RNA sequence: AGAUGAGAGAAACACCCCGCUCACAGGAGACUGUGAGCGACGCCCGGACGGCGCUUCCCCAGCUCCGGCCAGGCCGUGCCUUCGUGCACGCAUCCGGGGCCCCGCGCCCCGGGAAUCCUCACCGAUCGGA
Numbered sequence: 001a002g003a004u005g006a007g008a009g010a011a012a013c014a015c016c017c018c019g020c021u022c023a024c025a026g027g028a029g030a031c032u033g034u035g036a037g038c039g040a041c042g043c044c045c046g047g048a049c050g051g052c053g054c055u056u057c058c059c060c061a062g063c064u065c066c067g068g069c070c071a072g073g074c075c076g077u078g079c080c081u082u083c084g085u086g087c088a089c090g091c092a093u094c095c096g097g098g099g100c101c102c103c104g105c106g107c108c109c110c111g112g113g114a115a116u117c118c119u120c121a122c123c124g125a126u127c128g129g130a
Stems, first nucleotide, its partner, number of pairs: 004121004009117002018039009042074003046070002049067003053063002076089004093113008122129002